[Rfam]
RNA: Glycine riboswitch aptamer
Organism: Marinosulfonomonas sp. PRT-SC04
RNA sequence: GGAUCAACAUCGGGAGAAUCUGGUGAACACCAGUGCCGAAGGAGCAUGCGCCCCGCUAAACUCUCAGGCAACAGGGACCGAUGUUGAACA
Numbered sequence: 001g002g003a004u005c006a007a008c009a010u011c012g013g014g015a016g017a018a019u020c021u022g023g024u025g026a027a028c029a030c031c032a033g034u035g036c037c038g039a040a041g042g043a044g045c046a047u048g049c050g051c052c053c054c055g056c057u058a059a060a061c062u063c064u065c066a067g068g069c070a071a072c073a074g075g076g077a078c079c080g081a082u083g084u085u086g087a088a089c090a
Stems, first nucleotide, its partner, number of pairs: 006085008020033004035069003038065002042063003048056002
Dot-bracket structure: .....((((((((......((((......)))).(((((..(((...((.....))....))))).)))........)))))))).....